[Rfam]
RNA sequence: UCGGGACUACGUGAUUGGAUACGGCUCCAGAUGGAUAAACUGGCGGCGGACCGUGCUUGGGCCCCCGACCGGUCCGCCCAUUGAUAGCCAGCAGCCGCUGCAACCCCAGGGAG
Numbered sequence: 001u002c003g004g005g006a007c008u009a010c011g012u013g014a015u016u017g018g019a020u021a022c023g024g025c026u027c028c029a030g031a032u033g034g035a036u037a038a039a040c041u042g043g044c045g046g047c048g049g050a051c052c053g054u055g056c057u058u059g060g061g062c063c064c065c066c067g068a069c070c071g072g073u074c075c076g077c078c079c080a081u082u083g084a085u086a087g088c089c090a091g092c093a094g095c096c097g098c099u100g101c102a103a104c105c106c107c108a109g110g111g112a113g
Stems, first nucleotide, its partner, number of pairs: 048075006058067003089100004
RNA: Streptomyces-metK RNA